[Rfam]
RNA: S15-Flavobacteria ribosomal protein leader
RNA sequence: UAUCUUUGCACGCUUAACGGAUAAACCGUUACAUACAUAAAAAUCAUUAAAUCAAUAUUGGCAUG
Numbered sequence: 001u002a003u004c005u006u007u008g009c010a011c012g013c014u015u016a017a018c019g020g021a022u023a024a025a026c027c028g029u030u031a032c033a034u035a036c037a038u039a040a041a042a043a044u045c046a047u048u049a050a051a052u053c054a055a056u057a058u059u060g061g062c063a064u065g
Stems, first nucleotide, its partner, number of pairs: 015031005